[Rfam]
RNA: Potassium channel RNA editing signal
RNA sequence: GUCGGUUACGGUGACAUGGCCCCGAAAACUUACGUGGGCAUGUUCGUCGGUGCCCUGUGCGCGCUGGCCGGUGUGCUCACCAUCGCCCUGCCCGUUCCCGUCAUCGUGUCCAAC
Numbered sequence: 001g002u003c004g005g006u007u008a009c010g011g012u013g014a015c016a017u018g019g020c021c022c023c024g025a026a027a028a029c030u031u032a033c034g035u036g037g038g039c040a041u042g043u044u045c046g047u048c049g050g051u052g053c054c055c056u057g058u059g060c061g062c063g064c065u066g067g068c069c070g071g072u073g074u075g076c077u078c079a080c081c082a083u084c085g086c087c088c089u090g091c092c093c094g095u096u097c098c099c100g101u102c103a104u105c106g107u108g109u110c111c112a113a114c
Stems, first nucleotide, its partner, number of pairs: 001114002004111002007108005013102003018097002021094001037077004050062002